The record is a 72-nucleotide RNA sequence from Electrophorus electricus, which matches "mir-551 microRNA precursor family" in Rfam. Rfam 15.1 lists 1,097 matches to the family in 627 species. Taxonomically the source falls in Electrophorus (Eukaryota, Vertebrata, Otophysi, Gymnotiformes). For this family Rfam cites "Conservation of small RNA pathways in platypus" (Murchison et al., Genome Res, 2008). The family's consensus secondary structure was predicted with RNAalifold. The match comes from Rfam's covariance-model search (54 bits).
RNA sequence: CAGCAUUAGAGACCAAGCGUGGGUGGGGCCUGGAAUGUUGGCAUGGCGACCCAUCUUUGGUUUCUAAGGCUC
Numbered sequence: 001c002a003g004c005a006u007u008a009g010a011g012a013c014c015a016a017g018c019g020u021g022g023g024u025g026g027g028g029c030c031u032g033g034a035a036u037g038u039u040g041g042c043a044u045g046g047c048g049a050c051c052c053a054u055c056u057u058u059g060g061u062u063u064c065u066a067a068g069g070c071u072c
Stems, first nucleotide, its partner, number of pairs: 002071003006067002009064006016057002021052004028047003